[Rfam]
RNA sequence: AGCCUUAUUCUACAUAAGAAUGGGCACUGUUGAUCAUGGUGUACAAAAAUUGUUAAUGUGGCUAAAUUAAGACACAGGUUAUGCUUCCAUCAUGGUAUAUAUAUUGCAGUGGUGACAGUCAGACCUGUAACAUUU
Number, nucleotide and partner (000 for none) at each position: 001a000002g062003c061004c060005u000006u058007a057008u056009u000010c000011u000012a000013c000014a000015u000016a000017a000018g000019a000020a000021u045022g044023g000024g042025c041026a040027c039028u000029g000030u000031u000032g000033a000034u000035c000036a000037u000038g000039g027040u026041g025042u024043a000044c022045a021046a000047a000048a000049a000050u000051u000052g000053u000054u000055a000056a008057u007058g006059u000060g004061g003062c002063u000064a000065a000066a000067u000068u000069a000070a000071g000072a000073c000074a128075c127076a126077g125078g124079u000080u000081a000082u000083g000084c000085u000086u000087c000088c114089a113090u112091c111092a110093u109094g000095g000096u000097a000098u000099a000100u000101a000102u000103a000104u000105u000106g000107c000108a000109g093110u092111g091112g090113u089114g088115a000116c000117a000118g000119u000120c000121a000122g000123a000124c078125c077126u076127g075128u074129a000130a000131c000132a000133u000134u000135u000
Background: Rfam assigns this 135-nucleotide RNA sequence from Propithecus coquereli to the family "Small nucleolar RNA SNORA1". Gene Ontology terms of the family: nucleolus and RNA processing. About the family: ACA1 is a member of the H/ACA class of snoRNA that guide the sites of modification of uridines to pseudouridines. The source organism's lineage runs through Eukaryota, Euteleostomi, Theria, Strepsirrhini and Propithecus. It scores 142 bits against the family's covariance model. The family's consensus secondary structure was predicted with PFOLD.